[Rfam]
RNA sequence: UGCUUAUUUUGCCCAGGCGGAGCUCGACCGCCGGUUCAAGCCAUGAUCGCGUUUAUCGACGAACAUAAAGCAUCAUACGGGGUCGAGCCGAUCUGCCGGCUGCUGGCGAUCGCCCCG
Numbered sequence: 001u002g003c004u005u006a007u008u009u010u011g012c013c014c015a016g017g018c019g020g021a022g023c024u025c026g027a028c029c030g031c032c033g034g035u036u037c038a039a040g041c042c043a044u045g046a047u048c049g050c051g052u053u054u055a056u057c058g059a060c061g062a063a064c065a066u067a068a069a070g071c072a073u074c075a076u077a078c079g080g081g082g083u084c085g086a087g088c089c090g091a092u093c094u095g096c097c098g099g100c101u102g103c104u105g106g107c108g109a110u111c112g113c114c115c116c117g
Stems, first nucleotide, its partner, number of pairs: 016032005078117005089112002092109002096105001098103001

Background
This 117-nucleotide RNA sequence from Amphiplicatus metriothermophilus belongs to the Rfam family "ALIL pseudoknot". The family's RNA type in Rfam is cis-regulatory element. Its family is annotated with positive regulation of translational frameshifting in the Gene Ontology. A search with the family's covariance model found it, with a score of 106 bits. Lineage of the source: Bacteria > Pseudomonadati > Pseudomonadota > Alphaproteobacteria > Amphiplicatus. The family has 26 seed sequences and 2,146 matches in Rfam 15.1. The base pairs follow the family's consensus structure, which is taken from published work.